The family of this 45-nucleotide RNA sequence from Georgenia muralis is "L31-Actinobacteria ribosomal protein leader". The organism belongs to Georgenia, within Bacteria. For this family Rfam cites "Discovery of 20 novel ribosomal leader candidates in bacteria and archaea" (Eckert and Weinberg, BMC Microbiol, 2020). It is annotated as a cis-regulatory leader. The base pairs follow the family's consensus structure, which is taken from published work.
[Rfam]
RNA sequence: UCGGCCUCCGGUUCACGUGCGCCACGCGGCGUGCGACCCGGGGCA
Numbered sequence: 001u002c003g004g005c006c007u008c009c010g011g012u013u014c015a016c017g018u019g020c021g022c023c024a025c026g027c028g029g030c031g032u033g034c035g036a037c038c039c040g041g042g043g044c045a
Stems, first nucleotide, its partner, number of pairs: 004044001006043001008041004016035008